Description:
The family of this 448-nucleotide sequence from Novispirillum itersonii is "Bacterial RNase P class A". Lineage of the source: Bacteria > Pseudomonadati > Alphaproteobacteria > Novispirillaceae > Novispirillum.
[Rfam]
Nucleotides: 448
Base pairs, nucleotide, nucleotide: 001444002443003442004441005440006439007438008437009436010435011433012397013396014395015394016393017392018391020051021050022049023048026045056431057430058429060428061427062426063425064424065229066228067227068226073330074329078225079224080223081222082221083097084096085095086094087093098112099110100109101108102107113220114219118218119217120214121213122212135160136159137156138155139154140153141152142151143150144149168186169185170184171183172182173181187209188207189206190205192203193202194201195200233352234351235350236349243343244342245341246340247339248338321336322335323334360380361379362378363377365376366375367374368373
Number, partner (000 for none) and nucleotide at each position: 001444u002443c003442a004441g005440a006439u007438g008437g009436c010435c011433g012397g013396g014395u015394g016393a017392u018391c019000g020051c021050c022049c023048c024000a025000g026045u027000c028000c029000g030000g031000c032000g033000g034000c035000u036000u037000c038000g039000g040000c041000u042000g043000c044000u045026g046000g047000a048023g049022g050021g051020g052000a053000g054000g055000a056431a057430a058429g059000u060428c061427c062426g063425g064424g065229c066228u067227c068226c069000a070000c071000g072000g073330a074329a075000u076000g077000a078225c079224g080223g081222u082221g083097c084096c085095g086094g087093a088000u089000a090000a091000c092000g093087u094086c095085c096084g097083g098112c099110g100109g101108g102107g103000g104000c105000g106000a107102c108101c109100c110099c111000a112098g113220g114219g115000a116000a117000a118218g119217u120214g121213c122212c123000a124000c125000a126000g127000a128000g129000a130000g131000c132000a133000a134000a135160c136159c137156g138155c139154c140153c141152g142151g143150a144149c145000u146000g147000c148000g149144g150143u151142c152141c153140g154139g155138g156137u157000a158000a159136g160135g161000g162000u163000g164000a165000a166000a167000g168186g169185g170184u171183g172182c173181g174000g175000u176000a177000a178000g179000a180000g181173c182172g183171c184170a185169c186168c187209g188207c189206g190205c191000g192203g193202c194201u195200g196000g197000u198000a199000a200195c201194a202193g203192c204000g205190g206189c207188g208000g209187c210000a211000u212122g213121g214120u215000a216000a217119a218118c219114c220113c221082c222081a223080c224079c225078g226068g227067g228066a229065g230000c231000a232000a233352g234351a235350c236349c237000a238000a239000g240000u241000a242000g243343g244342g245341a246340c247339g248338g249000c250000a251000g252000c253000u254000g255000u256000u257000a258000a259000c260000c261000g262000u263000c264000g265000c266000g267000a268000g269000g270000a271000u272000c273000c274000c275000c276000g277000c278000a279000c280000c281000g282000c283000c284000u285000u286000c287000g288000g289000g290000c291000a292000c293000g294000c295000g296000g297000u298000g299000a300000c301000a302000u303000c304000g305000g306000g307000c308000g309000g310000c311000a312000g313000g314000a315000g316000c317000a318000g319000c320000a321336g322335g323334c324000a325000g326000g327000a328000u329074u330073u331000c332000g333000g334323g335322c336321c337000g338248c339247c340246g341245u342244c343243c344000g345000g346000g347000u348000c349236g350235g351234u352233c353000g354000c355000a356000c357000c358000g359000a360380g361379g362378u363377g364000u365376u366375c367374c368373g369000g370000u371000a372000a373368c374367g375366g376365g377363c378362a379361c380360c381000c382000c383000a384000g385000a386000u387000g388000a389000a390000u391018g392017a393016u394015c395014a396013c397012c398000c399000a400000a401000c402000g403000c404000c405000u406000u407000u408000c409000g410000g411000g412000g413000c414000g415000u416000g417000g418000a419000c420000a421000g422000a423000a424064c425063c426062c427061g428060g429058c430057u431056u432000a433011c434000a435010g436009g437008c438007c439006a440005u441004c442003u443002g444001g445000c446000a447000u448000u